[Rfam]
RNA: Bacterial RNase P class A
Organism: Cetobacterium ceti
RNA sequence: UAAGGUACUAGAGUUAAUCGCUUGUUUUUAACAAGAGGAAAGUCCGGGCUCCAUAGAGCAGAAGGGUAGCUAACGGCUACUAAAGGAAACUUUAAGGAAAGUGCCACAGAAAAGAUACCGCCUUCGGGUAAGGGUGAAAAGGUGGUGUAAGAGACCACCAGUUUCUUAGGAGACUAAGGAAGCUAGGUAAACCCCCUUCGGAGCAAGACUAAAUAGGAGAGGUUAAUGGGUUGCUCGUCCACUCUCAGGGUAAGUUGCUCGAAAUUAUAAGCAAUUAUAAUUCUAGAUAAAUGAUUAGCAAAUACAAAACCCGGCUUAUUUAGUGCCUUAUAUU
Numbered sequence: 001u002a003a004g005g006u007a008c009u010a011g012a013g014u015u016a017a018u019c020g021c022u023u024g025u026u027u028u029u030a031a032c033a034a035g036a037g038g039a040a041a042g043u044c045c046g047g048g049c050u051c052c053a054u055a056g057a058g059c060a061g062a063a064g065g066g067u068a069g070c071u072a073a074c075g076g077c078u079a080c081u082a083a084a085g086g087a088a089a090c091u092u093u094a095a096g097g098a099a100a101g102u103g104c105c106a107c108a109g110a111a112a113a114g115a116u117a118c119c120g121c122c123u124u125c126g127g128g129u130a131a132g133g134g135u136g137a138a139a140a141g142g143u144g145g146u147g148u149a150a151g152a153g154a155c156c157a158c159c160a161g162u163u164u165c166u167u168a169g170g171a172g173a174c175u176a177a178g179g180a181a182g183c184u185a186g187g188u189a190a191a192c193c194c195c196c197u198u199c200g201g202a203g204c205a206a207g208a209c210u211a212a213a214u215a216g217g218a219g220a221g222g223u224u225a226a227u228g229g230g231u232u233g234c235u236c237g238u239c240c241a242c243u244c245u246c247a248g249g250g251u252a253a254g255u256u257g258c259u260c261g262a263a264a265u266u267a268u269a270a271g272c273a274a275u276u277a278u279a280a281u282u283c284u285a286g287a288u289a290a291a292u293g294a295u296u297a298g299c300a301a302a303u304a305c306a307a308a309a310c311c312c313g314g315c316u317u318a319u320u321u322a323g324u325g326c327c328u329u330a331u332a333u334u
Stems, first nucleotide, its partner, number of pairs: 001330010011319001013299007021035006040317003044314005049203004056236004061199005066080005081095001082093004096194002101192002103188003118133002120129003141159006161183001162181008207256004217246005227241005263282008